Shown here is a 171-nucleotide RNA sequence from Betaproteobacteria bacterium SCN2, a member of the family "Manganese Mn2+ riboswitch aptamer (yybP-ykoY)". The organism belongs to Betaproteobacteria, within Bacteria. Rfam describes the family as follows. This RNA was originally discovered in E. coli during a large scale screen and was named SraF. The family was later found to exist upstream of related families of protein genes in many bacteria, including the the yybP and ykoK genes in B. subtilis.
[Rfam]
RNA sequence: GCCGACGUCAUUGGGGAGUAGCCUCUCUUCGAGCAGAAGAGGCUUGCGUCAACACACUUGCCGGCCCCGGCAUGGCGCAAGCGGUUUCCGGACUUGGCAAGACCUUUGACCACCCUACCUUCCGAGGCCGGAGAGGCAGUGUGGUCAAUUGUCGGAUCCGGCCGGAAUCUC
Numbered sequence: 001g002c003c004g005a006c007g008u009c010a011u012u013g014g015g016g017a018g019u020a021g022c023c024u025c026u027c028u029u030c031g032a033g034c035a036g037a038a039g040a041g042g043c044u045u046g047c048g049u050c051a052a053c054a055c056a057c058u059u060g061c062c063g064g065c066c067c068c069g070g071c072a073u074g075g076c077g078c079a080a081g082c083g084g085u086u087u088c089c090g091g092a093c094u095u096g097g098c099a100a101g102a103c104c105u106u107u108g109a110c111c112a113c114c115c116u117a118c119c120u121u122c123c124g125a126g127g128c129c130g131g132a133g134a135g136g137c138a139g140u141g142u143g144g145u146c147a148a149u150u151g152u153c154g155g156a157u158c159c160g161g162c163c164g165g166a167a168u169c170u171c
Base pairs, nucleotide, nucleotide: 026040027039028038042082043081044080045079046078047077048076049075050074051073059072060071061070062069063068083170084169086167087166088165089164